[Rfam]
A member of the RNA family "Bacteroidete tryptophan peptide leader RNA" from Polaribacter cellanae, 115 nucleotides long.
RNA sequence: CGUCUUAUUUUUGUAGAAUAAUGAAAUCAAUUACAAAAAAUAUAUGGUGGUGGAACUCUCUUAAUAAAUAAGUGAGAAGAAAACCUAUAUUAUAAAUAUACAAAAAAGGCUUAUC
Numbered sequence: 001c002g003u004c005u006u007a008u009u010u011u012u013g014u015a016g017a018a019u020a021a022u023g024a025a026a027u028c029a030a031u032u033a034c035a036a037a038a039a040a041u042a043u044a045u046g047g048u049g050g051u052g053g054a055a056c057u058c059u060c061u062u063a064a065u066a067a068a069u070a071a072g073u074g075a076g077a078a079g080a081a082a083a084c085c086u087a088u089a090u091u092a093u094a095a096a097u098a099u100a101c102a103a104a105a106a107a108g109g110c111u112u113a114u115c
Stems, first nucleotide, its partner, number of pairs: 036099001038097001041094004047088001049085003056079002058076003061071003
Its family is annotated with S-adenosylmethionine metabolic process and regulation of gene expression in the Gene Ontology. The match comes from Rfam's covariance-model search (50 bits).